The record is a 110-nucleotide RNA sequence from Bacillus sp. B1-b2, which matches "TPP riboswitch aptamer (THI element)" in Rfam. Gene Ontology term of the family: thiamine pyrophosphate binding. Rfam's curators write: Vitamin B(1) in its active form thiamin pyrophosphate (TPP) is an essential coenzyme that is synthesised by coupling of pyrimidine and thiazole moieties in bacteria.

[Rfam]
RNA sequence: AUUCUAUAUUUCGGGGGCUUGUGGAAUCAGGCUGAGAGUAUGGCUAUACUGCCAUUGACCGUAUGAACCUGUUGGGUAAUGCCAGUGUAGGGAGGUGUAUGUCAAAUAAA
Numbered sequence: 001a002u003u004c005u006a007u008a009u010u011u012c013g014g015g016g017g018c019u020u021g022u023g024g025a026a027u028c029a030g031g032c033u034g035a036g037a038g039u040a041u042g043g044c045u046a047u048a049c050u051g052c053c054a055u056u057g058a059c060c061g062u063a064u065g066a067a068c069c070u071g072u073u074g075g076g077u078a079a080u081g082c083c084a085g086u087g088u089a090g091g092g093a094g095g096u097g098u099a100u101g102u103c104a105a106a107u108a109a110a
Stems, first nucleotide, its partner, number of pairs: 006098005012061003016056001017032005040055004068091004072085004